RNA: Small nucleolar RNA SNORD19
Organism: Atlantisia rogersi
RNA sequence: GAAAAAUGAAGAUACUCUGAUUGCUUCCUAUUAUUCCUUUGAAGACUUCAGAUCCAACUCUGAUUUCACUCUUGUU
Dot-bracket structure: ((((...........................................................)))).........